The record is a 68-nucleotide RNA from Nocardia jinanensis, which matches "ASdes TB sRNA" in Rfam. Rfam classes the family as a small RNA. Lineage of the source: Bacteria > Bacillati > Actinomycetota > Mycobacteriales > Nocardia. For this family Rfam cites "Identification of small RNAs in Mycobacterium tuberculosis" (Arnvig and Young, Mol Microbiol, 2009).
RNA sequence: AGCGCGACGGGAUCUACGCCGCGGGUCACCACGAGGUAAUCACGGAUCGCGAUGCCGUGGCGGUUCUC
Numbered sequence: 001a002g003c004g005c006g007a008c009g010g011g012a013u014c015u016a017c018g019c020c021g022c023g024g025g026u027c028a029c030c031a032c033g034a035g036g037u038a039a040u041c042a043c044g045g046a047u048c049g050c051g052a053u054g055c056c057g058u059g060g061c062g063g064u065u066c067u068c
Stems, first nucleotide, its partner, number of pairs: 005062002008059002011030001013028001016026002035056004040052002043049002